[Rfam]
RNA sequence: AGUGAUGAUAGAGGUGCAAGGUUCAAUAGUAGCACAUCGAAGGAUGGACAAAUCCAGUGAUGAUGUGUGAAAGGGGAGCUUGCCGAAGUGAAGUAUCGUUGUUCCGAUACUUUGCUGGUUUUGCAUUUAACAGAUGUAGGACUGUCGAAUCUUGACGUUUCGGAGAGCUAUCACACAU
Numbered sequence: 001a002g003u004g005a006u007g008a009u010a011g012a013g014g015u016g017c018a019a020g021g022u023u024c025a026a027u028a029g030u031a032g033c034a035c036a037u038c039g040a041a042g043g044a045u046g047g048a049c050a051a052a053u054c055c056a057g058u059g060a061u062g063a064u065g066u067g068u069g070a071a072a073g074g075g076g077a078g079c080u081u082g083c084c085g086a087a088g089u090g091a092a093g094u095a096u097c098g099u100u101g102u103u104c105c106g107a108u109a110c111u112u113u114g115c116u117g118g119u120u121u122u123g124c125a126u127u128u129a130a131c132a133g134a135u136g137u138a139g140g141a142c143u144g145u146c147g148a149a150u151c152u153u154g155a156c157g158u159u160u161c162g163g164a165g166a167g168c169u170a171u172c173a174c175a176c177a178u
Base pairs, nucleotide, nucleotide: 006173007172008171009170010169011168016083017082018081019080020079022077023076024075032068033067034066035065036064037063038062039061087116088115089114090113091112092111093110094109095108096107097106098105117143118142119141120140121139122138123137124136125135126134127133145163146162147161148160149159151157
RNA: Lysine riboswitch aptamer